[Rfam]
RNA sequence: UGGCGUCACCGGGGGUGGCCCGCCGCAACGGCGGGUCUGAGAGAGUCCCCAGGAACCUGAUCCGGCUCAUACCGGCGGAGGGAGAGUGACAGGCCGCGCCC
Numbered sequence: 001u002g003g004c005g006u007c008a009c010c011g012g013g014g015g016u017g018g019c020c021c022g023c024c025g026c027a028a029c030g031g032c033g034g035g036u037c038u039g040a041g042a043g044a045g046u047c048c049c050c051a052g053g054a055a056c057c058u059g060a061u062c063c064g065g066c067u068c069a070u071a072c073c074g075g076c077g078g079a080g081g082g083a084g085a086g087u088g089a090c091a092g093g094c095c096g097c098g099c100c101c
Stems, first nucleotide, its partner, number of pairs: 006089004011050004016044001017037008056081003062075004
The record is a 101-nucleotide sequence from Deinococcus maricopensis, which matches "TPP riboswitch aptamer (THI element)" in Rfam. The match comes from Rfam's covariance-model search (57 bits).